A member of the RNA family "Guanidine-I riboswitch aptamer" from Cytobacillus horneckiae, 100 nucleotides long. This family represents a conserved RNA structure found upstream of the ykkC and yxkD genes in Bacillus subtilis and related genes in other bacteria. The match comes from Rfam's covariance-model search (91 bits). Lineage of the source: Bacteria > Bacillota > Bacilli > Bacillaceae > Cytobacillus. The pairing is the family consensus, mapped onto this sequence. Gene Ontology term of the family: regulation of gene expression.
[Rfam]
RNA sequence: AUAUAAGCUUUCUAGGGUUCCGCUUUUUUACAAGGUCUGGUCCGAGAGAAAGCGCAAAGCAUUUAAGCUUUGUUCACGGAGGGAUAAAAGCCCGGGAGAU
Numbered sequence: 001a002u003a004u005a006a007g008c009u010u011u012c013u014a015g016g017g018u019u020c021c022g023c024u025u026u027u028u029u030a031c032a033a034g035g036u037c038u039g040g041u042c043c044g045a046g047a048g049a050a051a052g053c054g055c056a057a058a059g060c061a062u063u064u065a066a067g068c069u070u071u072g073u074u075c076a077c078g079g080a081g082g083g084a085u086a087a088a089a090g091c092c093c094g095g096g097a098g099a100u
Base pairs, nucleotide, nucleotide: 007053008052009051010050011049012048015043016042020040021039022037023034024033025032054073055072056071057070058069059068060067075095077098081093082092083091